RNA sequence: AAACUGGUUUCUCUUUAGAUCGUAUAAAUCUUUCACCUUUUACUAAAGAUUUUUGUGGAGAGGGACAGGCACGAGUGUCAAGGAAUUUUUUGAGCCUCCAUUUCGGUGGAAAA
Number, nucleotide and partner (000 for none) at each position: 001a076002a000003a000004c073005u000006g000007g066008u065009u064010u063011c062012u061013c060014u059015u058016u057017a056018g000019a000020u000021c000022g000023u000024a000025u000026a052027a051028a050029u049030c048031u047032u046033u045034c000035a000036c000037c000038u000039u000040u000041u000042a000043c000044u000045a033046a032047a031048g030049a029050u028051u027052u026053u000054u000055g000056u017057g016058g015059a014060g013061a012062g011063g010064g009065a008066c007067a000068g000069g000070c000071a000072c000073g004074a000075g000076u001077g000078u000079c000080a000081a000082g000083g000084a000085a000086u000087u000088u000089u000090u000091u000092g000093a000094g000095c000096c000097u110098c109099c108100a107101u000102u000103u000104c000105g000106g000107u100108g099109g098110a097111a000112a000113a000
The record is a 113-nucleotide RNA sequence from Pedionomus torquatus, which matches "U5 spliceosomal RNA" in Rfam. Lineage of the source: Eukaryota > Gnathostomata > Euteleostomi > Neoaves > Pedionomus. Rfam classes the family as a spliceosomal small nuclear RNA. Rfam links the family to the GO terms U5 snRNP and spliceosomal tri-snRNP complex assembly.